[Rfam]
The family of this 113-nucleotide RNA from Rivibacter subsaxonicus is "Glycine riboswitch aptamer".
RNA sequence: CGUUUCCUCACUGGAGAGAGGCCGCCCCCGAGGCGGUCCACCGAAGGGGCAAGCGAAGUCGGGCAGAGCCCGCCGACGCCAAUCUCUCAGGUAAAGCGGACAGCGAGGGCAAA
Numbered sequence: 001c002g003u004u005u006c007c008u009c010a011c012u013g014g015a016g017a018g019a020g021g022c023c024g025c026c027c028c029c030g031a032g033g034c035g036g037u038c039c040a041c042c043g044a045a046g047g048g049g050c051a052a053g054c055g056a057a058g059u060c061g062g063g064c065a066g067a068g069c070c071c072g073c074c075g076a077c078g079c080c081a082a083u084c085u086c087u088c089a090g091g092u093a094a095a096g097c098g099g100a101c102a103g104c105g106a107g108g109g110c111a112a113a
Base pairs, nucleotide, nucleotide: 006108007107008106009105011103012102013101020038021037022036023035024034025033040092041091042090043088044087047086048085049084053079054078